[Rfam]
RNA: nhaA-I RNA
RNA sequence: GGGUGCACACACGCUGGUGUGAUGCAGGAUGCGCGAUGGUCGGGCCGCCACG
Numbered sequence: 001g002g003g004u005g006c007a008c009a010c011a012c013g014c015u016g017g018u019g020u021g022a023u024g025c026a027g028g029a030u031g032c033g034c035g036a037u038g039g040u041c042g043g044g045c046c047g048c049c050a051c052g
Stems, first nucleotide, its partner, number of pairs: 005025003008021004034052002037050004